[Rfam]
RNA sequence: GCGGAUGCUCGGUCCGCUGGAAUGUAACCUUUAAGGUUGAACCACAAA
Number, nucleotide and partner (000 for none) at each position: 001g017002c016003g015004g014005a013006u000007g000008c000009u000010c000011g000012g000013u005014c004015c003016g002017c001018u044019g043020g042021a000022a000023u000024g000025u000026a038027a037028c036029c035030u034031u000032u000033a000034a030035g029036g028037u027038u026039g000040a000041a000042c020043c019044a018045c000046a000047a000048a000
RNA: eL15-Euryarchaeota ribosomal protein leader